[Rfam]
RNA sequence: CUGAAUUGCGGGCUUGUUUUAAGUUGCCUGCGAUUUUUUAUUAAAACUCAGGCAGCUAAAGCAAGUCUGGAAAGUGG
Dot-bracket structure: ..(..((..(((((((((((.(((((((((.(..............).))))))))))))))))))))..))..)..

This 77-nucleotide RNA sequence from Polypterus senegalus belongs to the Rfam family "mir-1788 microRNA precursor family". The organism belongs to Polypterus, within Eukaryota. Pairs were carried over by alignment from the consensus structure, which was predicted with RNAalifold.